RNA sequence: ACUCAACACGAUCUCUUUAAAAAGGGUGAGUUCAAGGUGUAAAAGCGUGCCGUCUCAGUAUAAAAGCUGAUUGGCGGAUUAUUGAUCACCUUAGUAGCCCUAAACCUGAUUUAAGGAGUUU
Numbered sequence: 001a002c003u004c005a006a007c008a009c010g011a012u013c014u015c016u017u018u019a020a021a022a023a024g025g026g027u028g029a030g031u032u033c034a035a036g037g038u039g040u041a042a043a044a045g046c047g048u049g050c051c052g053u054c055u056c057a058g059u060a061u062a063a064a065a066g067c068u069g070a071u072u073g074g075c076g077g078a079u080u081a082u083u084g085a086u087c088a089c090c091u092u093a094g095u096a097g098c099c100c101u102a103a104a105c106c107u108g109a110u111u112u113a114a115g116g117a118g119u120u121u
Stems, first nucleotide, its partner, number of pairs: 023101005034092005043083002050077004